[Rfam]
RNA sequence: AGGGUGAGUAGAGGUGCGGUCCUCAAGAGUACUUUCAGGGAGAGUGGCGUCAGGAUCUGAAAGGAAAGGGAUGACCGCCGAAGUACGAAAGAAUGCCAAGCUUUCGUGCUGGUGUUGCGCCGAACAGGUGUAACACUGUCACCAAAGUUAUUUUGGUGGAGCGCUAUCUCAACU
Numbered sequence: 001a002g003g004g005u006g007a008g009u010a011g012a013g014g015u016g017c018g019g020u021c022c023u024c025a026a027g028a029g030u031a032c033u034u035u036c037a038g039g040g041a042g043a044g045u046g047g048c049g050u051c052a053g054g055a056u057c058u059g060a061a062a063g064g065a066a067a068g069g070g071a072u073g074a075c076c077g078c079c080g081a082a083g084u085a086c087g088a089a090a091g092a093a094u095g096c097c098a099a100g101c102u103u104u105c106g107u108g109c110u111g112g113u114g115u116u117g118c119g120c121c122g123a124a125c126a127g128g129u130g131u132a133a134c135a136c137u138g139u140c141a142c143c144a145a146a147g148u149u150a151u152u153u154u155g156g157u158g159g160a161g162c163g164c165u166a167u168c169u170c171a172a173c174u
Stems, first nucleotide, its partner, number of pairs: 006169001008167004016078006023071002032063008082110010111137011139159007
Shown here is a 174-nucleotide RNA from Thermosinus carboxydivorans, a member of the family "Lysine riboswitch aptamer". Its family is annotated with lysine biosynthetic process in the Gene Ontology.